Source information
A member of the RNA family "Small nucleolar RNA SNORA77" from Gambusia affinis, 128 nucleotides long. The organism belongs to Gambusia, within Eukaryota. Its family is annotated with nucleolus and RNA processing in the Gene Ontology. Rfam classes the family as an H/ACA-box small nucleolar RNA. The literature on the family includes a 2006 paper in RNA by Schattner et al., "A computational screen for mammalian pseudouridylation guide H/ACA RNAs".
[Rfam]
RNA sequence: GCAGACACACUCUGUUCUUUGCUGCAUACUCCAGCCUGGGACUUUUUCUGUCUGCUACAUAAACAUGCAGAAUGUAACACGACUAGCUUUGCUAAAAGUCUGAUGGUGUUGCAUUUUGCUACAUUUCA
Numbered sequence: 001g002c003a004g005a006c007a008c009a010c011u012c013u014g015u016u017c018u019u020u021g022c023u024g025c026a027u028a029c030u031c032c033a034g035c036c037u038g039g040g041a042c043u044u045u046u047u048c049u050g051u052c053u054g055c056u057a058c059a060u061a062a063a064c065a066u067g068c069a070g071a072a073u074g075u076a077a078c079a080c081g082a083c084u085a086g087c088u089u090u091g092c093u094a095a096a097a098g099u100c101u102g103a104u105g106g107u108g109u110u111g112c113a114u115u116u117u118g119c120u121a122c123a124u125u126u127c128a
Base pairs, nucleotide, nucleotide: 001055002054003053004052005051006050014042015041016040017039018038022034023033024032067119068118069117070116071115072114073113074112075111076110077109078108079107080105081104083102